Description: Fluoride riboswitch aptamer (crcB RNA motif): a 77-nucleotide RNA sequence from Sphingomonas rubra. A search with the family's covariance model found it, with a score of 43 bits. The literature on the family includes a 2017 paper in Nat Chem Biol by Zhao et al., "An excited state underlies gene regulation of a transcriptional riboswitch".

RNA sequence: CUCGGGCACGGCGAUGGAUUUCCGCCGGGCCAUUCGGCCGAACCGCCCUCGCAAGGGCCGAUGAUUCCUACCAGGCG
Numbered sequence: 001c002u003c004g005g006g007c008a009c010g011g012c013g014a015u016g017g018a019u020u021u022c023c024g025c026c027g028g029g030c031c032a033u034u035c036g037g038c039c040g041a042a043c044c045g046c047c048c049u050c051g052c053a054a055g056g057g058c059c060g061a062u063g064a065u066u067c068c069u070a071c072c073a074g075g076c077g
Base pairs, nucleotide, nucleotide: 010026011025012024013023016068017067018066020064021063045058046057047056048055